[Rfam]
Shown here is a 132-nucleotide sequence from Pseudidiomarina planktonica, a member of the family "Gammaprotebacteria rimP leader". The organism belongs to Pseudidiomarina, within Bacteria. The match comes from Rfam's covariance-model search (60 bits). Pairs were carried over by alignment from the consensus structure, which is taken from published work. The family's RNA type in Rfam is cis-regulatory leader.

RNA sequence: CUACGAGAAGUAAAACAAAGGGUCCAGUGUUCAAAAAGCCCCGCAGCAGUUCGGGGCUUUUUACUAUGUGACCUCUGCUGCACCGUUUCGACGGCCGGGCAGUCAACACACUGGGCGCUAUGCCCUUUUUUU
Numbered sequence: 001c002u003a004c005g006a007g008a009a010g011u012a013a014a015a016c017a018a019a020g021g022g023u024c025c026a027g028u029g030u031u032c033a034a035a036a037a038g039c040c041c042c043g044c045a046g047c048a049g050u051u052c053g054g055g056g057c058u059u060u061u062u063a064c065u066a067u068g069u070g071a072c073c074u075c076u077g078c079u080g081c082a083c084c085g086u087u088u089c090g091a092c093g094g095c096c097g098g099g100c101a102g103u104c105a106a107c108a109c110a111c112u113g114g115g116c117g118c119u120a121u122g123c124c125c126u127u128u129u130u131u132u
Stems, first nucleotide, its partner, number of pairs: 035060009113125004